[Rfam]
RNA sequence: CUGGGAUGAUGCAAUUUAGCCAAAGCAGACAUUGAUGUGCUCCUAAGGGUUUUGUGAUUUCACUACCUUUGGUAGAAGUGCAUCCCUCUGAAGAAAAAACAGAGAAUGGUUUCUUUCUGACCAGA
Numbered sequence: 001c002u003g004g005g006a007u008g009a010u011g012c013a014a015u016u017u018a019g020c021c022a023a024a025g026c027a028g029a030c031a032u033u034g035a036u037g038u039g040c041u042c043c044u045a046a047g048g049g050u051u052u053u054g055u056g057a058u059u060u061c062a063c064u065a066c067c068u069u070u071g072g073u074a075g076a077a078g079u080g081c082a083u084c085c086c087u088c089u090g091a092a093g094a095a096a097a098a099a100c101a102g103a104g105a106a107u108g109g110u111u112u113c114u115u116u117c118u119g120a121c122c123a124g125a
Stems, first nucleotide, its partner, number of pairs: 001124004
small nucleolar RNA snoR127: a 125-nucleotide RNA from Cuscuta europaea. It is annotated as a C/D-box small nucleolar RNA. The literature on the family includes a 2009 paper in Nucleic Acids Res by Chen and Wu, "Mining small RNA sequencing data: a new approach to identify small nucleolar RNAs in Arabidopsis".